[Rfam]
RNA: Potassium channel RNA editing signal
RNA sequence: AUUUUCUACAAAUUUCAGGUACCUCACACAUAUUACGGCAUGGUAGUCGGUUCAUUUUGUGCUUUAAUGGGUGUACUCACGAUUGCUUUACCGGUACCAGUAAUCGUGUCUAAU
Numbered sequence: 001a002u003u004u005u006c007u008a009c010a011a012a013u014u015u016c017a018g019g020u021a022c023c024u025c026a027c028a029c030a031u032a033u034u035a036c037g038g039c040a041u042g043g044u045a046g047u048c049g050g051u052u053c054a055u056u057u058u059g060u061g062c063u064u065u066a067a068u069g070g071g072u073g074u075a076c077u078c079a080c081g082a083u084u085g086c087u088u089u090a091c092c093g094g095u096a097c098c099a100g101u102a103a104u105c106g107u108g109u110c111u112a113a114u
Stems, first nucleotide, its partner, number of pairs: 001114002007108003011104001013102001016100001019097004037077002040074001049063003